[Rfam]
RNA sequence: AGUAACGACGGUUACAUCGGGAGUGACUGAAUAAACUUACUGGCAUAUAGCUGGUUAAGGUGAUGCGACAGAGGUGGUGCUCGCUGUCAGGAAUGGCAGAACUACUGAACCAAGUAGGUCGUAGGCAGAGAAGUUUUUCUAAUCUGUAGAAAUGCCCUUCUCUUGUUGGUAUACAGGAUUCCAACCUCCCUCUUC
Numbered sequence: 001a002g003u004a005a006c007g008a009c010g011g012u013u014a015c016a017u018c019g020g021g022a023g024u025g026a027c028u029g030a031a032u033a034a035a036c037u038u039a040c041u042g043g044c045a046u047a048u049a050g051c052u053g054g055u056u057a058a059g060g061u062g063a064u065g066c067g068a069c070a071g072a073g074g075u076g077g078u079g080c081u082c083g084c085u086g087u088c089a090g091g092a093a094u095g096g097c098a099g100a101a102c103u104a105c106u107g108a109a110c111c112a113a114g115u116a117g118g119u120c121g122u123a124g125g126c127a128g129a130g131a132a133g134u135u136u137u138u139c140u141a142a143u144c145u146g147u148a149g150a151a152a153u154g155c156c157c158u159u160c161u162c163u164u165g166u167u168g169g170u171a172u173a174c175a176g177g178a179u180u181c182c183a184a185c186c187u188c189c190c191u192c193u194u195c
Stems, first nucleotide, its partner, number of pairs: 002015005019190005026061002039055006064123006071082003075112004084099006102117005127163007136152004144176004165185005
The family of this 195-nucleotide RNA sequence is "manA RNA". The family's RNA type in Rfam is cis-regulatory element. manA RNA has been located in 5'UTR regions of genes of mannose or fructose metabolism. Has been proposed as a cis-regulatory element and as a riboswitch candidate for his complex secondary structure.